[Rfam]
RNA: Small nucleolar RNA SNORD71
RNA sequence: UGUGUGCUGGAGGAUGAAAGUAAGGAGUGAUCCAUCGGCUGAGUGUCUUACCACAAUGCUGAAGCUCACACUGCUGACAGCACACA
Dot-bracket structure: .(((((((((.((((.(..........).)))).(((((...(((......)))...)))))...........))...))))))).
Numbered sequence: 001u002g003u004g005u006g007c008u009g010g011a012g013g014a015u016g017a018a019a020g021u022a023a024g025g026a027g028u029g030a031u032c033c034a035u036c037g038g039c040u041g042a043g044u045g046u047c048u049u050a051c052c053a054c055a056a057u058g059c060u061g062a063a064g065c066u067c068a069c070a071c072u073g074c075u076g077a078c079a080g081c082a083c084a085c086a
Stems, first nucleotide, its partner, number of pairs: 002085007009075002012033004017028001035062005043054003